[Rfam]
RNA sequence: UUCAUCGCGAGGUGGAAUCUGGAGGAAGCUGGAGGCAAAUGCACGAGCCAAGGUACACGAACUGGAUUUGAGGCAGGGAUCACAGAUGAGUCACUUAUGCAUAACGAAAUCCGAAGUCGCCAAGGGCAUCCCUGUAGACUCCAGUGGUUGCGGGCAGAAAAAUGGCGCU
Numbered sequence: 001u002u003c004a005u006c007g008c009g010a011g012g013u014g015g016a017a018u019c020u021g022g023a024g025g026a027a028g029c030u031g032g033a034g035g036c037a038a039a040u041g042c043a044c045g046a047g048c049c050a051a052g053g054u055a056c057a058c059g060a061a062c063u064g065g066a067u068u069u070g071a072g073g074c075a076g077g078g079a080u081c082a083c084a085g086a087u088g089a090g091u092c093a094c095u096u097a098u099g100c101a102u103a104a105c106g107a108a109a110u111c112c113g114a115a116g117u118c119g120c121c122a123a124g125g126g127c128a129u130c131c132c133u134g135u136a137g138a139c140u141c142c143a144g145u146g147g148u149u150g151c152g153g154g155c156a157g158a159a160a161a162a163u164g165g166c167g168c169u
Stems, first nucleotide, its partner, number of pairs: 001016006028169001030167002040156003044152002046149005062144005067138001073135003077131004083125001085111003090105002093102001